[Rfam]
RNA sequence: CCCAAAUUAGCUACUUGUUAUUUUCUAAUUGGUUCCUAGUGUGUUAAAUUUUCUAAGAACCAAUUAGAAAAUGACAAGUGGUUAGCAUAAA
Numbered sequence: 001c002c003c004a005a006a007u008u009a010g011c012u013a014c015u016u017g018u019u020a021u022u023u024u025c026u027a028a029u030u031g032g033u034u035c036c037u038a039g040u041g042u043g044u045u046a047a048a049u050u051u052u053c054u055a056a057g058a059a060c061c062a063a064u065u066a067g068a069a070a071a072u073g074a075c076a077a078g079u080g081g082u083u084a085g086c087a088u089a090a091a
Stems, first nucleotide, its partner, number of pairs: 004088001007085029037055003
This 91-nucleotide RNA sequence from Prunus yedoensis belongs to the Rfam family "MIR6288 microRNA precursor family". Its family is annotated with RISC complex and miRNA-mediated post-transcriptional gene silencing in the Gene Ontology.